The family of this 139-nucleotide sequence from Striga asiatica is "Small nucleolar RNA Z247". The literature on the family includes a 2003 paper in Nucleic Acids Res by Chen et al., "The high diversity of snoRNAs in plants: identification and comparative study of 120 snoRNA genes from Oryza sativa". Taxonomically the source falls in Striga (Eukaryota, Streptophyta, Embryophyta, Orobanchaceae). A search with the family's covariance model found it, with a score of 40 bits. The base pairs follow the family's consensus structure, which was predicted with PFOLD.

[Rfam]
RNA sequence: AAGCUAAGUGAUGAUGAACACAUCUCCUACAUACUCACUGGGUUAGGAAGUGAUUACAACUCUGUAAUGGUCACUGUAAACUCAAGGGUGGAACCAUACACCCUUAGAGAGCUCCAUGCCUUGCUGUUGAGCUUUGAAA
Numbered sequence: 001a002a003g004c005u006a007a008g009u010g011a012u013g014a015u016g017a018a019c020a021c022a023u024c025u026c027c028u029a030c031a032u033a034c035u036c037a038c039u040g041g042g043u044u045a046g047g048a049a050g051u052g053a054u055u056a057c058a059a060c061u062c063u064g065u066a067a068u069g070g071u072c073a074c075u076g077u078a079a080a081c082u083c084a085a086g087g088g089u090g091g092a093a094c095c096a097u098a099c100a101c102c103c104u105u106a107g108a109g110a111g112c113u114c115c116a117u118g119c120c121u122u123g124c125u126g127u128u129g130a131g132c133u134u135u136g137a138a139a
Base pairs, nucleotide, nucleotide: 005137007135008134082108083107085105086104087103